[Rfam]
RNA sequence: ACAAGAAAUAAGGGGUGCUGCACGGUUGUGCUGCUGAGAUUAUACCCAUAGAACCUGACGCAGAUAAUGCUGCCGCAGGGAUAUUUCUAUUCCGUAUU
Number, nucleotide and partner (000 for none) at each position: 001a000002c000003a000004a000005g000006a086007a085008a084009u083010a082011a000012g047013g046014g045015g000016u042017g034018c033019u000020g031021c030022a000023c000024g000025g000026u000027u000028g000029u000030g021031c020032u000033g018034c017035u000036g000037a000038g000039a000040u000041u000042a016043u000044a000045c014046c013047c012048a000049u000050a000051g000052a000053a000054c079055c078056u077057g076058a000059c000060g073061c072062a071063g070064a000065u000066a000067a000068u000069g000070c063071u062072g061073c060074c000075g000076c057077a056078g055079g054080g000081a000082u010083a009084u008085u007086u006087c000088u000089a000090u000091u000092c000093c000094g000095u000096a000097u000098u000
The family of this 98-nucleotide sequence from Prevotella sp. CAG:386 is "TPP riboswitch aptamer (THI element)". NCBI's taxonomy places the organism under Bacteria, Bacteroidota, Bacteroidia, Prevotellaceae, Prevotella. It scores 70 bits against the family's covariance model.